A member of the RNA family "THF (Tetrahydrofolate) riboswitch aptamer" from Ruminococcus sp. CAG:353, 132 nucleotides long. The family has 101 seed sequences and 747 matches in Rfam 15.1.
RNA sequence: UACAGAGUAGAUGACUGUGCGUUUGGAGCCUGAAUACAGGCACCGCAGUGUCCCGACAACGGGGAGUUGUGUCGGGGACGAAAUUUUCCGCUGAAAAGCGGAAAUGCGGUACAGUCAUCGCAUCCCGCUGAA
Numbered sequence: 001u002a003c004a005g006a007g008u009a010g011a012u013g014a015c016u017g018u019g020c021g022u023u024u025g026g027a028g029c030c031u032g033a034a035u036a037c038a039g040g041c042a043c044c045g046c047a048g049u050g051u052c053c054c055g056a057c058a059a060c061g062g063g064g065a066g067u068u069g070u071g072u073c074g075g076g077g078a079c080g081a082a083a084u085u086u087u088c089c090g091c092u093g094a095a096a097a098g099c100g101g102a103a104a105u106g107c108g109g110u111a112c113a114g115u116c117a118u119c120g121c122a123u124c125c126c127g128c129u130g131a132a
Base pairs, nucleotide, nucleotide: 001132003130004129005128010119011118012117013116014115015114016113017112018111019110020108021107022106048079049078051077052076053075054074055073056072057071058070062125063124064123066121083105084104085103086102087101088100
Background: The match comes from Rfam's covariance-model search (63 bits).